The family of this 75-nucleotide sequence from Haemonchus placei is "mir-5928 microRNA precursor family". A search with the family's covariance model found it, with a score of 63 bits. Gene Ontology terms of the family: miRNA-mediated post-transcriptional gene silencing and RISC complex. Rfam 15.1 lists 1,672 matches to the family in 12 species. Pairs were carried over by alignment from the consensus structure, which was predicted with RNAalifold.

[Rfam]
RNA sequence: AGCCCGAAUUUGAAGUAGAGUAGAUUAGAAGGAUCACCUGACCCCACUCAACUACUCUACUUCAAGUUUGUGCCU
Numbered sequence: 001a002g003c004c005c006g007a008a009u010u011u012g013a014a015g016u017a018g019a020g021u022a023g024a025u026u027a028g029a030a031g032g033a034u035c036a037c038c039u040g041a042c043c044c045c046a047c048u049c050a051a052c053u054a055c056u057c058u059a060c061u062u063c064a065a066g067u068u069u070g071u072g073c074c075u
Stems, first nucleotide, its partner, number of pairs: 002073002005070005011064013025050001027048002032043001034041002